[Rfam]
This 94-nucleotide RNA sequence from Durio zibethinus belongs to the Rfam family "MIR535 microRNA precursor family".
RNA sequence: AUGAUCUAUUGACAAUGAGAGAGAGCACGCCCGUUGUCAUUCAUACAAGAAUAUAGAUGUAUACAGGCGUGCUCUCUAUCGUUGUCAUAUGAUC
Numbered sequence: 001a002u003g004a005u006c007u008a009u010u011g012a013c014a015a016u017g018a019g020a021g022a023g024a025g026c027a028c029g030c031c032c033g034u035u036g037u038c039a040u041u042c043a044u045a046c047a048a049g050a051a052u053a054u055a056g057a058u059g060u061a062u063a064c065a066g067g068c069g070u071g072c073u074c075u076c077u078a079u080c081g082u083u084g085u086c087a088u089a090u091g092a093u094c
Stems, first nucleotide, its partner, number of pairs: 010087005016081002020077002023074001025072007033064002
Notes:
For this family Rfam cites "Conservation and divergence of microRNAs and their functions in Euphorbiaceous plants" (Zeng et al., Nucleic Acids Res, 2010). The family's consensus secondary structure was predicted with RNAalifold. The family has 20 seed sequences and 544 matches in Rfam 15.1. The source organism's lineage runs through Eukaryota, Euphyllophyta, Malvales, Malvaceae and Durio.